[Rfam]
RNA sequence: CUUCAGCGACCCCAGCCGCAGCGGCUGCCCGGCGGGCCGGUCCUGCCCGUAGGUGGCCAUCAGCGCCUGGGCCUC
Dot-bracket structure: .............((((.....))))......(....((....((.(((....))).))....))...)......

The record is a 75-nucleotide RNA from Kitasatospora griseola, which matches "ASpks TB sRNA" in Rfam. The organism belongs to Kitasatospora, within Bacteria. The family's consensus secondary structure is taken from published work. It scores 79 bits against the family's covariance model. A reference for the family is Arnvig and Young (2009), "Identification of small RNAs in Mycobacterium tuberculosis", Mol Microbiol.